[Rfam]
RNA sequence: AUUUAAACCUGAUUGAAGCGGAAAUACUUUUUGAUGAAGUUUGCAACGGGUUCACACUGACAAAUCGCAAAAAGAUUUUAGCAAAAAGCAGGGCUGCUU
Numbered sequence: 001a002u003u004u005a006a007a008c009c010u011g012a013u014u015g016a017a018g019c020g021g022a023a024a025u026a027c028u029u030u031u032u033g034a035u036g037a038a039g040u041u042u043g044c045a046a047c048g049g050g051u052u053c054a055c056a057c058u059g060a061c062a063a064a065u066c067g068c069a070a071a072a073a074g075a076u077u078u079u080a081g082c083a084a085a086a087a088g089c090a091g092g093g094c095u096g097c098u099u
Stems, first nucleotide, its partner, number of pairs: 009091003013087002018082002023077003029072005035067003

The family of this 99-nucleotide sequence from Pedobacter sp. Leaf194 is "Flavo-1 RNA".
It scores 47 bits against the family's covariance model.
The base pairs follow the family's consensus structure, which is taken from published work.